[Rfam]
The family of this 214-nucleotide RNA from Paucilactobacillus wasatchensis is "T-box leader". Uncharged tRNA acts as the effector for transcription antitermination of genes in the T-box leader family. The family's consensus secondary structure is taken from published work. A search with the family's covariance model found it, with a score of 122 bits. On this family, see Grundy et al., J Bacteriol 1994: "Interaction between the acceptor end of tRNA and the T box stimulates antitermination in the Bacillus subtilis tyrS gene: a new role for the discriminator base".
RNA sequence: UAAUCAGCAAUGAACAAGAAAGUAAUGUCUUAAUGGUGUUUAGAAAGAGAAUACAUGACUGAAAUAUUUUCCGCCAUUGAAAUGUGAAGGUAGCUUGGGAGCUGGUAUUUUGAAAUUUAGUAAAAAUACCCGGAAUGUCAUUUCGUUAACAAUGAUUUUAAGUGGGGUUUAACAAACCCAAGUUAGGUGGUACCGCGAUUAAAUCGUCCUAUUU
Numbered sequence: 001u002a003a004u005c006a007g008c009a010a011u012g013a014a015c016a017a018g019a020a021a022g023u024a025a026u027g028u029c030u031u032a033a034u035g036g037u038g039u040u041u042a043g044a045a046a047g048a049g050a051a052u053a054c055a056u057g058a059c060u061g062a063a064a065u066a067u068u069u070u071c072c073g074c075c076a077u078u079g080a081a082a083u084g085u086g087a088a089g090g091u092a093g094c095u096u097g098g099g100a101g102c103u104g105g106u107a108u109u110u111u112g113a114a115a116u117u118u119a120g121u122a123a124a125a126a127u128a129c130c131c132g133g134a135a136u137g138u139c140a141u142u143u144c145g146u147u148a149a150c151a152a153u154g155a156u157u158u159u160a161a162g163u164g165g166g167g168u169u170u171a172a173c174a175a176a177c178c179c180a181a182g183u184u185a186g187g188u189g190g191u192a193c194c195g196c197g198a199u200u201a202a203a204u205c206g207u208c209c210u211a212u213u214u
Stems, first nucleotide, its partner, number of pairs: 007102002015097004025085004030080001036074003047071006105129007131145003165179006184211004195207005